Small nucleolar RNA Z159/U59: an 84-nucleotide RNA from Lathyrus oleraceus.
The literature on the family includes a 2003 paper in Nucleic Acids Res by Chen et al., "The high diversity of snoRNAs in plants: identification and comparative study of 120 snoRNA genes from Oryza sativa".
Lineage of the source: Eukaryota > Spermatophyta > Mesangiospermae > eudicotyledons > Lathyrus.
Clan: SNORD59 clan.
Nucleotides: 084
Base pairs, nucleotide, nucleotide: 003082004081005080006079
Number, partner (000 for none) and nucleotide at each position: 001000a002000c003082c004081u005080c006079u007000g008000a009000u010000g011000a012000u013000g014000a015000u016000c017000a018000a019000a020000a021000u022000u023000a024000u025000a026000a027000c028000u029000u030000u031000c032000g033000u034000u035000c036000u037000u038000c039000u040000g041000a042000g043000u044000u045000a046000u047000c048000c049000a050000u051000g052000c053000g054000g055000a056000a057000a058000u059000u060000a061000u062000a063000u064000g065000g066000a067000g068000a069000c070000c071000u072000g073000a074000a075000c076000u077000g078000a079006a080005g081004a082003g083000g084000c